Annotation:
Shown here is a 95-nucleotide RNA from Oryza sativa, a member of the family "MIR1862 microRNA precursor family". Taxonomically the source falls in Oryza (Eukaryota, Viridiplantae, Tracheophyta, Oryzoideae). Rfam links the family to the GO terms RISC complex and miRNA-mediated post-transcriptional gene silencing.
RNA sequence: UACUCCCUCUGUCCCAAAAUAAACAAAGCUAGUACGGGGAUGUGGCACUUCCUAGUCCUGUACUAGGUUUGUUUAUUUUGGGACGGAGGGAGUAU
Number, nucleotide and partner (000 for none) at each position: 001u094002a093003c092004u091005c090006c089007c088008u087009c086010u085011g084012u083013c082014c081015c080016a079017a078018a077019a076020u075021a074022a073023a072024c071025a070026a069027a068028g000029c066030u065031a064032g063033u062034a056035c055036g000037g000038g052039g051040a050041u000042g000043u000044g000045g000046c000047a000048c000049u000050u040051c039052c038053u000054a000055g035056u034057c000058c000059u000060g000061u000062a033063c032064u031065a030066g029067g000068u027069u026070u025071g024072u023073u022074u021075a020076u019077u018078u017079u016080g015081g014082g013083a012084c011085g010086g009087a008088g007089g006090g005091a004092g003093u002094a001095u000